[Rfam]
RNA sequence: UAAAUACGUACGCCGAAUUUCCGUUCGAAAACGGGGGAACCAUUAUUUAGGGGUGAAUUUCGCUUGCAAUGAGCGAAUAGGGCAACCUGUGCAUGCCCGAAUCCGUCAGCUAACCUCGUAGGCGCUAUGCAGCAGGAGC
Numbered sequence: 001u002a003a004a005u006a007c008g009u010a011c012g013c014c015g016a017a018u019u020u021c022c023g024u025u026c027g028a029a030a031a032c033g034g035g036g037g038a039a040c041c042a043u044u045a046u047u048u049a050g051g052g053g054u055g056a057a058u059u060u061c062g063c064u065u066g067c068a069a070u071g072a073g074c075g076a077a078u079a080g081g082g083c084a085a086c087c088u089g090u091g092c093a094u095g096c097c098c099g100a101a102u103c104c105g106u107c108a109g110c111u112a113a114c115c116u117c118g119u120a121g122g123c124g125c126u127a128u129g130c131a132g133c134a135g136g137a138g139c
Base pairs, nucleotide, nucleotide: 011124012123013122014121018030019029020028031119032118033117034116035115036114041050051104052103053102059077060076061075062074080098081097082096083095
RNA: c-di-AMP riboswitch aptamer (ydaO/yuaA leader)